[Rfam]
RNA sequence: UAUAUUUGUGGGCAAAUCAGAUGAAAAUCUGAGACGCAAAGCCAAAGGAGCUAAAGUUAGACAGAUAUCUGACCAUGCCAGCCGGUUGCCAUU
Numbered sequence: 001u002a003u004a005u006u007u008g009u010g011g012g013c014a015a016a017u018c019a020g021a022u023g024a025a026a027a028u029c030u031g032a033g034a035c036g037c038a039a040a041g042c043c044a045a046a047g048g049a050g051c052u053a054a055a056g057u058u059a060g061a062c063a064g065a066u067a068u069c070u071g072a073c074c075a076u077g078c079c080a081g082c083c084g085g086u087u088g089c090c091a092u093u
Stems, first nucleotide, its partner, number of pairs: 012037002017032006040087004047083002050078002056073006
RNA: c-di-GMP-I riboswitch aptamer